[Rfam]
RNA sequence: GGUCCAUCGCCACGUCGCCGGUAGCAAGUACAUCGGCAAUGACCGGUGAUGUCAGGAUAGGACCGAAAUUGAUCUUUUUUUCACAUGUAGAUAGGAACCCGUGGAUCGAUUUUCAACUAAUUCAUCCACGGAGCCGUUUCUGUGAUUACAUUU
Numbered sequence: 001g002g003u004c005c006a007u008c009g010c011c012a013c014g015u016c017g018c019c020g021g022u023a024g025c026a027a028g029u030a031c032a033u034c035g036g037c038a039a040u041g042a043c044c045g046g047u048g049a050u051g052u053c054a055g056g057a058u059a060g061g062a063c064c065g066a067a068a069u070u071g072a073u074c075u076u077u078u079u080u081u082c083a084c085a086u087g088u089a090g091a092u093a094g095g096a097a098c099c100c101g102u103g104g105a106u107c108g109a110u111u112u113u114c115a116a117c118u119a120a121u122u123c124a125u126c127c128a129c130g131g132a133g134c135c136g137u138u139u140c141u142g143u144g145a146u147u148a149c150a151u152u153u
Base pairs, nucleotide, nucleotide: 002063003062004061005060006058007057008055013051014050015049016048017047018046020044021043022042024037025036081145082144083143084142085141094135095134099131100130101129103127104126105125106124
RNA: Small nucleolar RNA snoR2/U65